[Rfam]
RNA sequence: CAAUAGUCAUGAUGGUCAAAGCUCAUGGAUGUUGCAGGUUUUUUGUCCUGCACUUCUUGCGAGUUU
Numbered sequence: 001c002a003a004u005a006g007u008c009a010u011g012a013u014g015g016u017c018a019a020a021g022c023u024c025a026u027g028g029a030u031g032u033u034g035c036a037g038g039u040u041u042u043u044u045g046u047c048c049u050g051c052a053c054u055u056c057u058u059g060c061g062a063g064u065u066u
Base pairs, nucleotide, nucleotide: 019066020065021064022063023062024061033052034051035050036049037048038047
RNA: Streptococcus sRNA Spd-sr37
Organism: Streptococcus thermophilus